[Rfam]
RNA sequence: CCUGCCGAAGUUUCCCUCAGGAUAGCAGAAGCUCAUAUCAGUUUUAUGAGGUAAAGCGAAUGAUUAGAAGUAUUGGGGGCGAAAUGCCCUCGGCUUAUUCUCAAACUUUAAAUAUGUAAGAAGCCUUGGUUACUUAAUCGAACCGUGGCUACGAAUGAAGAGCUUCUAGUGGGCCAUUUUUGGUAAGCAGAACUGGCGAUGCGGGAUGAACCGAACGUGGAGUUAAGGUGCCGGAAUACACGCUCAUCAGACACCACAAAAGGUGUUAGUUUAUCUAGACAGCCGGACGGUGGCCAUGGAAGUCGGAAUCCGCUAAGGAGUGUGUCACAACUCACCGGCCGAAUGAACUAGCCCUGAAAAUGGAUGGCGCUUAAGCGUGUUACCUAUACUCUACCGAGAGGAGGUUUCCUCUCGAGUAGGCAGGCGUGGGGGUUGUUGAGAAGCGUUGGCCGAGAAGCUGCGUCGAACGGCCCCUAGUGCAGAU
Numbered sequence: 001c002c003u004g005c006c007g008a009a010g011u012u013u014c015c016c017u018c019a020g021g022a023u024a025g026c027a028g029a030a031g032c033u034c035a036u037a038u039c040a041g042u043u044u045u046a047u048g049a050g051g052u053a054a055a056g057c058g059a060a061u062g063a064u065u066a067g068a069a070g071u072a073u074u075g076g077g078g079g080c081g082a083a084a085u086g087c088c089c090u091c092g093g094c095u096u097a098u099u100c101u102c103a104a105a106c107u108u109u110a111a112a113u114a115u116g117u118a119a120g121a122a123g124c125c126u127u128g129g130u131u132a133c134u135u136a137a138u139c140g141a142a143c144c145g146u147g148g149c150u151a152c153g154a155a156u157g158a159a160g161a162g163c164u165u166c167u168a169g170u171g172g173g174c175c176a177u178u179u180u181u182g183g184u185a186a187g188c189a190g191a192a193c194u195g196g197c198g199a200u201g202c203g204g205g206a207u208g209a210a211c212c213g214a215a216c217g218u219g220g221a222g223u224u225a226a227g228g229u230g231c232c233g234g235a236a237u238a239c240a241c242g243c244u245c246a247u248c249a250g251a252c253a254c255c256a257c258a259a260a261a262g263g264u265g266u267u268a269g270u271u272u273a274u275c276u277a278g279a280c281a282g283c284c285g286g287a288c289g290g291u292g293g294c295c296a297u298g299g300a301a302g303u304c305g306g307a308a309u310c311c312g313c314u315a316a317g318g319a320g321u322g323u324g325u326c327a328c329a330a331c332u333c334a335c336c337g338g339c340c341g342a343a344u345g346a347a348c349u350a351g352c353c354c355u356g357a358a359a360a361u362g363g364a365u366g367g368c369g370c371u372u373a374a375g376c377g378u379g380u381u382a383c384c385u386a387u388a389c390u391c392u393a394c395c396g397a398g399a400g401g402a403g404g405u406u407u408c409c410u411c412u413c414g415a416g417u418a419g420g421c422a423g424g425c426g427u428g429g430g431g432g433u434u435g436u437u438g439a440g441a442a443g444c445g446u447u448g449g450c451c452g453a454g455a456a457g458c459u460g461c462g463u464c465g466a467a468c469g470g471c472c473c474c475u476a477g478u479g480c481a482g483a484u
Stems, first nucleotide, its partner, number of pairs: 001424006011024001013022003027167007042121007054109001055107002061103003066098001068096003073093006080086001123149003127145005173197004178192005202213003217394005223388001227384003236381001238380001241377003261355003265352010282339005288312003294306002313317001318333001322331002395414008425479001427476010443463002449458002